About this RNA
The family of this 114-nucleotide RNA sequence from Araneus ventricosus is "Potassium channel RNA editing signal". Its family is annotated with adenosine to inosine editing in the Gene Ontology. A search with the family's covariance model found it, with a score of 85 bits. Rfam classes the family as a cis-regulatory element. This family represents a group of sequences related to the human potassium channel Kv1.1 hairpin element which directs the efficient modification of an adenosine to inosine by an adenosine deaminase acting on RNA (ADAR). The ADAR modification causes an isoleucine/valine recoding event which lies in the ion-conducting pore of the potassium channel. It is thought that this editing event targets the process of fast inactivation and allows a more rapid recovery from inactivation at negative potentials. The base pairs follow the family's consensus structure, which is taken from published work.

RNA sequence: GUUGGGUACGGGGAUAUGGUACCUAAGACUUACGCGGGGAUGUUCGUCGGUGCCCUCUGUGCACUGGCCGGCGUGCUGACCAUAUCACUGCCCGUGCCCGUCAUCGUAUCGAAU
Numbered sequence: 001g002u003u004g005g006g007u008a009c010g011g012g013g014a015u016a017u018g019g020u021a022c023c024u025a026a027g028a029c030u031u032a033c034g035c036g037g038g039g040a041u042g043u044u045c046g047u048c049g050g051u052g053c054c055c056u057c058u059g060u061g062c063a064c065u066g067g068c069c070g071g072c073g074u075g076c077u078g079a080c081c082a083u084a085u086c087a088c089u090g091c092c093c094g095u096g097c098c099c100g101u102c103a104u105c106g107u108a109u110c111g112a113a114u
Stems, first nucleotide, its partner, number of pairs: 001114002005110001007108005013102003018097001021095002037077002040074001050062002
Dot-bracket structure: ((..(.(((((.(((..(..((..............((.(.........((.........))...........).))................)).)..))).))))).)..))